[Rfam]
This 74-nucleotide sequence from Chrysodeixis includens belongs to the Rfam family "mir-10 microRNA precursor family".

RNA sequence: UGUGGGAUACCCUGUAGAUCCGGGCUUUUGUAUUUUAUUUUACUCAGAAGCUCGCUCCUACAGGUAUCUCACGG
Numbered sequence: 001u002g003u004g005g006g007a008u009a010c011c012c013u014g015u016a017g018a019u020c021c022g023g024g025c026u027u028u029u030g031u032a033u034u035u036u037a038u039u040u041u042a043c044u045c046a047g048a049a050g051c052u053c054g055c056u057c058c059u060a061c062a063g064g065u066a067u068c069u070c071a072c073g074g
Stems, first nucleotide, its partner, number of pairs: 002072006010064002016059002021054010
Dot-bracket structure: .((((((..((....((...((((((((((..............))))))))))...))...))..))))))..
Taxonomically the source falls in Chrysodeixis (Eukaryota, Arthropoda, Dicondylia, Ditrysia). Pairs were carried over by alignment from the consensus structure, which was predicted with PFOLD.